[Rfam]
RNA sequence: AACCCAUCCAGAGCGGCCGAGAGUCCUGGCUCGACGACGCCGCAGCAACCCGUUCUCCGACGGAAGCCUCCCGAGGACGAAGGUGCUCACGCCAGGUUCGAUGGAGU
Numbered sequence: 001a002a003c004c005c006a007u008c009c010a011g012a013g014c015g016g017c018c019g020a021g022a023g024u025c026c027u028g029g030c031u032c033g034a035c036g037a038c039g040c041c042g043c044a045g046c047a048a049c050c051c052g053u054u055c056u057c058c059g060a061c062g063g064a065a066g067c068c069u070c071c072c073g074a075g076g077a078c079g080a081a082g083g084u085g086c087u088c089a090c091g092c093c094a095g096g097u098u099c100g101a102u103g104g105a106g107u
Stems, first nucleotide, its partner, number of pairs: 001107001004104005013043005021032003026095004044087004049083002051079007091099001
RNA: SAM riboswitch aptamer (S box leader)
Organism: Isoptericola variabilis